The family of this 93-nucleotide RNA is "Rhodo-rpoB RNA".
RNA sequence: CGGUCGGGAGACUUUCCUUGGGAAGAAAGUCAAGAAUUGGCCGUCAUUAUCAUCUCAACUAAGCCCGCCGCUGGGUUCCCGACAGCGUGUGUG
Number, nucleotide and partner (000 for none) at each position: 001c043002g042003g041004u040005c039006g000007g000008g000009a000010g031011a030012c029013u028014u027015u026016c025017c000018u000019u000020g000021g000022g000023a000024a000025g016026a015027a014028a013029g012030u011031c010032a000033a000034g000035a000036a000037u000038u000039g005040g004041c003042c002043g001044u000045c000046a000047u000048u000049a000050u000051c000052a000053u000054c000055u000056c000057a000058a000059c000060u000061a000062a000063g000064c093065c000066c091067g090068c089069c087070g086071c085072u084073g083074g000075g000076u000077u000078c000079c000080c000081g000082a000083c073084a072085g071086c070087g069088u000089g068090u067091g066092u000093g064

About this RNA: By type it is a cis-regulatory element. It is one of the family's seed sequences.